Annotation: Molybdenum/Tungsten riboswitch aptamer (Moco RNA motif): a 124-nucleotide RNA from Desulforamulus ruminis. The organism belongs to Desulforamulus ruminis, within Bacteria.
[Rfam]
RNA sequence: AGUAAAUACUUUCUCCGAGCUUAUAAACCUACGAUCUAAAACUUUUUAAGGGUUAUAAGCCGAUAGGGUUUGUCUGGAAACGGACAGGCCUCCCGGUGCGGAAAGGAGAGUAUAAAACGGUUAA
Numbered sequence: 001a002g003u004a005a006a007u008a009c010u011u012u013c014u015c016c017g018a019g020c021u022u023a024u025a026a027a028c029c030u031a032c033g034a035u036c037u038a039a040a041a042c043u044u045u046u047u048a049a050g051g052g053u054u055a056u057a058a059g060c061c062g063a064u065a066g067g068g069u070u071u072g073u074c075u076g077g078a079a080a081c082g083g084a085c086a087g088g089c090c091u092c093c094c095g096g097u098g099c100g101g102a103a104a105g106g107a108g109a110g111u112a113u114a115a116a117a118c119g120g121u122u123a124a
Stems, first nucleotide, its partner, number of pairs: 011110006019060008028051002033047002066091011092101002
The match comes from Rfam's covariance-model search (69 bits).